The family of this 110-nucleotide RNA sequence from Pricia antarctica is "6S-Flavo RNA". NCBI's taxonomy places the organism under Bacteria, Pseudomonadati, Flavobacteriia, Flavobacteriales, Pricia. The family's consensus secondary structure is taken from published work.
RNA sequence: GCUCAACACUUAUAUUUUUGAAAAGGGUGAGUUUAGGCUGUAAAAGCAGGCCCUACUUGUAUAGGGAUCCUUGAUCAGUCUGUUAGCCCUAAACCUGUUUACUGGAGUUC
Dot-bracket structure: .......................(((((......(((((....(((....((((........))))...)))....)))))....)))))....................